[Rfam]
RNA sequence: CGGCUGUAGGAGCGGAGGCCGUUACACUGUAAGAGAUUGAGUAGCUGGUCUCACAGUGAACCGGUCUCUUUUCCUACUGCUGA
Numbered sequence: 001c002g003g004c005u006g007u008a009g010g011a012g013c014g015g016a017g018g019c020c021g022u023u024a025c026a027c028u029g030u031a032a033g034a035g036a037u038u039g040a041g042u043a044g045c046u047g048g049u050c051u052c053a054c055a056g057u058g059a060a061c062c063g064g065u066c067u068c069u070u071u072u073c074c075u076a077c078u079g080c081u082g083a
Stems, first nucleotide, its partner, number of pairs: 006077005015068007025058006033052003

This 83-nucleotide RNA from Erpetoichthys calabaricus belongs to the Rfam family "mir-128 microRNA precursor family".
The source organism's lineage runs through Eukaryota, Opisthokonta, Craniata, Actinopterygii and Erpetoichthys.
Its family is annotated with RISC complex and miRNA-mediated post-transcriptional gene silencing in the Gene Ontology.